[Rfam]
RNA: tRNA
RNA sequence: GAAGAUCGUCGUCUCCGGUGAGGCGGCUGGACUUCAAAUCCAGUUGGGGCCGCCAGCGGUCCCGGGCAGGUUCGACUCCUGUGAUCUUCC
Numbered sequence: 001g002a003a004g005a006u007c008g009u010c011g012u013c014u015c016c017g018g019u020g021a022g023g024c025g026g027c028u029g030g031a032c033u034u035c036a037a038a039u040c041c042a043g044u045u046g047g048g049g050c051c052g053c054c055a056g057c058g059g060u061c062c063c064g065g066g067c068a069g070g071u072u073c074g075a076c077u078c079c080u081g082u083g084a085u086c087u088u089c090c
Stems, first nucleotide, its partner, number of pairs: 001089007010025004027043005066082005